A member of the RNA family "T-box leader" from Listeria innocua, 227 nucleotides long. The family has 48 seed sequences and 19,395 matches in Rfam 15.1. The organism belongs to Listeria, within Bacteria. The sequence is in the family's curated seed alignment. Rfam describes the family as follows. Uncharged tRNA acts as the effector for transcription antitermination of genes in the T-box leader family.

RNA sequence: CUAAAUGCGAUGAAGAGGAAGAGUAGGUCAUUUAUUUUUCUAAGAGAGAAAGCGGUCGGUGUAAGCUUUCAAAAAUAAUGUCUGAAGGUAGCCUUGGAGCAGUUUUCCUGAAAUAAUAGUAGGGAAUAACCGGUAGAUCUCGUCUAUCGUUAACACAAUGAAGUGCCUACAUUUCUUAUUGUAGGUAAAAAGGUGGUACCGCGAAUAAUACUCUUUUCGUCCUUUUA
Number, nucleotide and partner (000 for none) at each position: 001c000002u000003a000004a000005a000006u000007g100008c099009g000010a000011u000012g000013a000014a000015g095016a094017g093018g092019a000020a000021g000022a000023g000024u000025a000026g083027g082028u000029c080030a079031u078032u000033u000034a000035u000036u000037u073038u072039u071040c000041u000042a000043a000044g000045a000046g000047a000048g070049a069050a068051a067052g066053c065054g000055g000056u000057c000058g000059g000060u000061g000062u000063a000064a000065g053066c052067u051068u050069u049070c048071a039072a038073a037074a000075a000076u000077a000078a031079u030080g029081u000082c027083u026084g000085a000086a000087g000088g000089u000090a000091g000092c018093c017094u016095u015096g000097g000098a000099g008100c007101a000102g000103u129104u128105u126106u125107c124108c123109u122110g000111a000112a000113a000114u000115a000116a000117u000118a000119g000120u000121a000122g109123g108124g107125a106126a105127u000128a104129a103130c000131c149132g148133g147134u146135a145136g144137a000138u000139c000140u000141c000142g000143u000144c136145u135146a134147u133148c132149g131150u000151u000152a000153a000154c000155a000156c000157a000158a000159u000160g000161a000162a000163g000164u000165g000166c185167c184168u183169a182170c181171a180172u000173u000174u000175c000176u000177u000178a000179u000180u171181g170182u169183a168184g167185g166186u000187a000188a000189a000190a224191a223192g222193g221194u000195g000196g000197u000198a000199c000200c000201g220202c219203g218204a217205a216206u000207a000208a000209u000210a000211c000212u000213c000214u000215u000216u205217u204218c203219g202220u201221c193222c192223u191224u190225u000226u000227a000